Background:
This 67-nucleotide sequence from Aliivibrio fischeri belongs to the Rfam family "Fluoride riboswitch aptamer (crcB RNA motif)". Pairs were carried over by alignment from the consensus structure, which is taken from published work. The organism belongs to Aliivibrio fischeri, within Bacteria.

RNA sequence: CCAAAUACGGGUGAUGGAUUUCCACCUUUAACCGCUCUAUUUUAGAGAUAAUGAUUCCUACUAUAGC
Number, nucleotide and partner (000 for none) at each position: 001c000002c000003a000004a000005a000006u000007a000008c000009g000010g026011g025012u024013g023014a000015u000016g058017g057018a056019u000020u054021u053022c000023c013024a012025c011026c010027u000028u000029u000030a000031a000032c000033c000034g000035c047036u046037c045038u000039a000040u000041u000042u000043u000044a000045g037046a036047g035048a000049u000050a000051a000052u000053g021054a020055u000056u018057c017058c016059u000060a000061c000062u000063a000064u000065a000066g000067c000